This 106-nucleotide RNA from Ruminococcaceae bacterium KH2T8 belongs to the Rfam family "RT-5 RNA".
RNA sequence: UUGCGUCUGCGGAGGACCAGGCAGGAGUCUUUGAAAAGGCUUUGCAGACAGCCGAUCCCUGUACGGUCCGGUAACUCCAUCAAUUUUGAUGGAUUUAAUAUCUUCU
Numbered sequence: 001u002u003g004c005g006u007c008u009g010c011g012g013a014g015g016a017c018c019a020g021g022c023a024g025g026a027g028u029c030u031u032u033g034a035a036a037a038g039g040c041u042u043u044g045c046a047g048a049c050a051g052c053c054g055a056u057c058c059c060u061g062u063a064c065g066g067u068c069c070g071g072u073a074a075c076u077c078c079a080u081c082a083a084u085u086u087u088g089a090u091g092g093a094u095u096u097a098a099u100a101u102c103u104u105c106u
Stems, first nucleotide, its partner, number of pairs: 005049007014069002017066002021062005027056002038053004077092006